[Rfam]
RNA sequence: CUCGGGGCAGGGUGUCCCUCAGCCUGGAUUGUGAGAGGGCGCAGGCCAGGCCGAGGGACUCACCGGUGCACG
Numbered sequence: 001c002u003c004g005g006g007g008c009a010g011g012g013u014g015u016c017c018c019u020c021a022g023c024c025u026g027g028a029u030u031g032u033g034a035g036a037g038g039g040c041g042c043a044g045g046c047c048a049g050g051c052c053g054a055g056g057g058a059c060u061c062a063c064c065g066g067u068g069c070a071c072g
Stems, first nucleotide, its partner, number of pairs: 004069001006067001008065001010063001012061001014059007022051003026047002029044005
RNA: mir-9193 microRNA precursor family
Organism: Myotis brandtii